[Rfam]
RNA sequence: UGUCAGCUGUCACCCGACGCACACCACGGCAGGAGCGGGGGACCCAGGUAAGUCGCCGGGAGCGUGUCGCUCUCGGCUAGGGGUGAAGCCGUGCUCUGCACGGCCGGGCAACUCCGGCCCGAACCCGACAGCUCACCUCGCAGGCGUGGGAGAGGACCC
Numbered sequence: 001u002g003u004c005a006g007c008u009g010u011c012a013c014c015c016g017a018c019g020c021a022c023a024c025c026a027c028g029g030c031a032g033g034a035g036c037g038g039g040g041g042a043c044c045c046a047g048g049u050a051a052g053u054c055g056c057c058g059g060g061a062g063c064g065u066g067u068c069g070c071u072c073u074c075g076g077c078u079a080g081g082g083g084u085g086a087a088g089c090c091g092u093g094c095u096c097u098g099c100a101c102g103g104c105c106g107g108g109c110a111a112c113u114c115c116g117g118c119c120c121g122a123a124c125c126c127g128a129c130a131g132c133u134c135a136c137c138u139c140g141c142a143g144g145c146g147u148g149g150g151a152g153a154g155g156a157c158c159c
Base pairs, nucleotide, nucleotide: 006145007144008143013033014032035141036140037139038138039137040136045080081126082125083124089103090102091101092100106120107119108118109117